[Rfam]
RNA sequence: GCACUGGUUUAGCUCAGUGGUUACUUCAAACAAUUCUAAGUUUACGAAUUAGUUCUCUGCCCUCACAGGGCUCGAACCACGGGCGCUGUCCAGUGUUUUU
Number, nucleotide and partner (000 for none) at each position: 001g000002c095003a094004c093005u092006g091007g090008u000009u000010u000011a000012g084013c083014u082015c081016a000017g080018u079019g078020g077021u000022u000023a000024c000025u076026u075027c074028a000029a072030a000031c000032a000033a000034u000035u000036c000037u000038a000039a000040g000041u000042u000043u000044a000045c000046g000047a000048a000049u000050u000051a000052g000053u000054u000055c000056u000057c000058u000059g000060c000061c000062c000063u000064c000065a000066c000067a000068g000069g000070g000071c000072u029073c000074g027075a026076a025077c020078c019079a018080c017081g015082g014083g013084c012085g000086c000087u000088g000089u000090c007091c006092a005093g004094u003095g002096u000097u000098u000099u000100u000